Nucleotides: 107
Base pairs, nucleotide, nucleotide: 004050007047008046009045010044011043022091023090024089027082028081030080031079036106038104
Number, partner (000 for none) and nucleotide at each position: 001000c002000u003000g004050u005000a006000a007047a008046g009045a010044u011043a012000u013000u014000c015000u016000u017000u018000g019000c020000g021000c022091c023090c024089u025000u026000u027082c028081g029000c030080g031079g032000c033000u034000g035000a036106u037000a038104a039000a040000c041000a042000g043011u044010a045009u046008u047007u048000g049000a050004a051000g052000c053000u054000c055000g056000a057000g058000u059000a060000a061000a062000u063000g064000g065000a066000g067000u068000a069000a070000g071000u072000u073000g074000a075000a076000u077000g078000g079031c080030c081028c082027g083000u084000a085000u086000a087000g088000c089024a090023g091022g092000c093000g094000u095000c096000a097000a098000u099000a100000u101000u102000c103000c104038u105000g106036a107000u

Shown here is a 107-nucleotide RNA sequence from Ketobacter sp., a member of the family "Alpha operon ribosome binding site". A search with the family's covariance model found it, with a score of 41 bits. The family's RNA type in Rfam is cis-regulatory element. The family's consensus secondary structure is taken from published work. NCBI's taxonomy places the organism under Bacteria, Pseudomonadati, Pseudomonadota, Gammaproteobacteria, Ketobacter. The bacterial alpha operon ribosome binding site is surrounded by this complex pseudoknotted structure. Translation of the mRNA produces 4 ribosomal protein products, one of which (S4) acts as a translational repressor by binding to the nested pseudoknot region. The mechanism of repression is thought to involve a conformational switch in the pseudoknot region and ribosome entrapment.